[Rfam]
The family of this 153-nucleotide sequence from Paenibacillus hemerocallicola is "c-di-AMP riboswitch aptamer (ydaO/yuaA leader)". The organism belongs to Paenibacillus, within Bacteria.
RNA sequence: CAACGUUAAUCGCUGAGUUUUCUUUUGAGAAAAGCGGGGGAACCAAGUAAUAUGGGGUGAAUCGGUAGGCAAUCCGCAGAUUGCAUAUCGUAGGGCGUUUUCUCACCGCCCGAAUCCGUCAGCUAACCUCGUAAGCGAAUGUGGGGAGGAUAG
Number, nucleotide and partner (000 for none) at each position: 001c000002a000003a000004c000005g000006u000007u000008a000009a000010u000011c137012g136013c135014u134015g000016a000017g000018u033019u032020u031021u030022c029023u000024u000025u000026u000027g000028a000029g022030a021031a020032a019033a018034g132035c131036g130037g129038g128039g127040g000041a000042a000043c000044c054045a053046a000047g000048u000049a000050a000051u000052a000053u045054g044055g117056g116057g115058u000059g000060a000061a000062u000063c090064g089065g088066u087067a000068g000069g000070c000071a000072a000073u000074c000075c000076g000077c000078a000079g000080a000081u000082u000083g000084c000085a000086u000087a066088u065089c064090g063091u000092a000093g111094g110095g109096c108097g000098u000099u000100u000101u000102c000103u000104c000105a000106c000107c000108g096109c095110c094111c093112g000113a000114a000115u057116c056117c055118g000119u000120c000121a000122g000123c000124u000125a000126a000127c039128c038129u037130c036131g035132u034133a000134a014135g013136c012137g011138a000139a000140u000141g000142u000143g000144g000145g000146g000147a000148g000149g000150a000151u000152a000153g000